[Rfam]
RNA: Mammalian CPEB3 ribozyme
RNA sequence: GGUUAAAAAUUUGAGGCCCUAGCAGAAGGGCUCCCAGCUUGGCCCUGUCAGAUUCCAGUGAGUUUGCAAAUUCUGCU
Numbered sequence: 001g002g003u004u005a006a007a008a009a010u011u012u013g014a015g016g017c018c019c020u021a022g023c024a025g026a027a028g029g030g031c032u033c034c035c036a037g038c039u040u041g042g043c044c045c046u047g048u049c050a051g052a053u054u055c056c057a058g059u060g061a062g063u064u065u066g067c068a069a070a071u072u073c074u075g076c077u
Base pairs, nucleotide, nucleotide: 013045015044016043017042018041021077022076023075024074025073026072027071028040029039030038049066050065051064052063053062054061055060
Dot-bracket structure: ............[.[[[[..((((((((((.......)))]]]]]...(((((((....)))))))....)))))))